[Rfam]
RNA sequence: GGUACCUUUAAUUCAGUCCCGUGAGGCUGACAAGGACAGCGGAAAUAAUGAUUAUUGCAUGCGCAGCCUAUCUAUAUGUAGGCUCUCUAUGUCUUGUUCAUUGUGUAAAGAAAGCUUCUUGUCAGAAAUGGCAAGAAGCUUUUUUUA
Numbered sequence: 001g002g003u004a005c006c007u008u009u010a011a012u013u014c015a016g017u018c019c020c021g022u023g024a025g026g027c028u029g030a031c032a033a034g035g036a037c038a039g040c041g042g043a044a045a046u047a048a049u050g051a052u053u054a055u056u057g058c059a060u061g062c063g064c065a066g067c068c069u070a071u072c073u074a075u076a077u078g079u080a081g082g083c084u085c086u087c088u089a090u091g092u093c094u095u096g097u098u099c100a101u102u103g104u105g106u107a108a109a110g111a112a113a114g115c116u117u118c119u120u121g122u123c124a125g126a127a128a129u130g131g132c133a134a135g136a137a138g139c140u141u142u143u144u145u146u147a
Stems, first nucleotide, its partner, number of pairs: 005035004013030006057092005063086001065084006111142014